[Rfam]
RNA: MIR390 microRNA precursor family
Organism: Raphanus sativus
RNA sequence: GAGAAGAAUCUGUAAAGCUCAGGAGGGAUAGCGCCAUCACAAUCACAUUUCACGUCGAUCUUUUUGGCGCUGUCCAUCCUGAGUUUCAUUGGCUCUUCUU
Numbered sequence: 001g002a003g004a005a006g007a008a009u010c011u012g013u014a015a016a017g018c019u020c021a022g023g024a025g026g027g028a029u030a031g032c033g034c035c036a037u038c039a040c041a042a043u044c045a046c047a048u049u050u051c052a053c054g055u056c057g058a059u060c061u062u063u064u065u066g067g068c069g070c071u072g073u074c075c076a077u078c079c080u081g082a083g084u085u086u087c088a089u090u091g092g093c094u095c096u097u098c099u100u
Base pairs, nucleotide, nucleotide: 010091016085017084018083019082020081021080022079023078024077026075027074028073029072030071031070032069033068034067035066